A member of the RNA family "Actinobacteria sRNA Ms_AS-8" from Mycolicibacterium rhodesiae, 74 nucleotides long.
Taxonomically the source falls in Mycolicibacterium rhodesiae (Bacteria, Actinomycetes, Mycobacteriaceae, Mycobacterium).
For this family Rfam cites "Identification of small RNAs in Mycobacterium smegmatis using heterologous Hfq" (Li et al., RNA, 2013).
[Rfam]
RNA sequence: CUUGAUCAGAGCUACUGGACUUUCAGAUCAUCCUCGGGAAGGUGCGCCCACUUUCACGCCGCCCCACCGAGGCU
Numbered sequence: 001c002u003u004g005a006u007c008a009g010a011g012c013u014a015c016u017g018g019a020c021u022u023u024c025a026g027a028u029c030a031u032c033c034u035c036g037g038g039a040a041g042g043u044g045c046g047c048c049c050a051c052u053u054u055c056a057c058g059c060c061g062c063c064c065c066a067c068c069g070a071g072g073c074u
Base pairs, nucleotide, nucleotide: 003030004029005028006027007026008023009022010021038055039054040053041052042051043050044049